A member of the RNA family "serC leader" from Iodidimonas nitroreducens, 53 nucleotides long. This family is a putative regulatory RNA structure that is found upstream of the serC-serA operon in some alpha-proteobacteria. The final stem of the structure overlaps the ribosome binding site of the serC reading frame. The organism belongs to Iodidimonas, within Bacteria. It scores 56 bits against the family's covariance model. Rfam links the family to the GO term regulation of gene expression. A reference for the family is Corbino et al. (2005), "Evidence for a second class of S-adenosylmethionine riboswitches and other regulatory RNA motifs in alpha-proteobacteria", Genome Biol.

[Rfam]
RNA sequence: CGGUGGGCCACGCCUCCCCAAUGAGGCGCGCGCUCUCUGUAAGGAGAGGAAAC
Numbered sequence: 001c002g003g004u005g006g007g008c009c010a011c012g013c014c015u016c017c018c019c020a021a022u023g024a025g026g027c028g029c030g031c032g033c034u035c036u037c038u039g040u041a042a043g044g045a046g047a048g049g050a051a052a053c
Stems, first nucleotide, its partner, number of pairs: 011028006033048006